[Rfam]
RNA: mir-399 microRNA precursor family
Organism: Hibiscus trionum
RNA sequence: UGUAAAAUAACAGUGCGAUCCUCCUUUGGCACAGAUAAGAACUUGGCAUGCAAUGCUUUAACUUCUAGCUUUGCCAAAGGAGAAUUGCCCUGCCAUUCACUC
Numbered sequence: 001u002g003u004a005a006a007a008u009a010a011c012a013g014u015g016c017g018a019u020c021c022u023c024c025u026u027u028g029g030c031a032c033a034g035a036u037a038a039g040a041a042c043u044u045g046g047c048a049u050g051c052a053a054u055g056c057u058u059u060a061a062c063u064u065c066u067a068g069c070u071u072u073g074c075c076a077a078a079g080g081a082g083a084a085u086u087g088c089c090c091u092g093c094c095a096u097u098c099a100c101u102c
Stems, first nucleotide, its partner, number of pairs: 006097003011092003015088005021082004027076005033070002